[Rfam]
RNA sequence: UCACAUGUACUGCCGGGGUAACCAAAGCUCUGACUUCUCUCAUCCUCAGAGUUUUGUUACCCCGGCUCUCUGUGGG
Numbered sequence: 001u002c003a004c005a006u007g008u009a010c011u012g013c014c015g016g017g018g019u020a021a022c023c024a025a026a027g028c029u030c031u032g033a034c035u036u037c038u039c040u041c042a043u044c045c046u047c048a049g050a051g052u053u054u055u056g057u058u059a060c061c062c063c064g065g066c067u068c069u070c071u072g073u074g075g076g
Base pairs, nucleotide, nucleotide: 001076002075004074005073006072007071009069012066013065014064015063016062017061019059020058021057022056024055025054026053027052028051029050030049031048032047033046

The family of this 76-nucleotide sequence from Branchiostoma floridae is "mir-4872 microRNA precursor family". It scores 73 bits against the family's covariance model. The family has 4 seed sequences and 72 matches in Rfam 15.1. Gene Ontology terms of the family: miRNA-mediated post-transcriptional gene silencing and RISC complex. Lineage of the source: Eukaryota > Bilateria > Deuterostomia > Cephalochordata > Branchiostoma.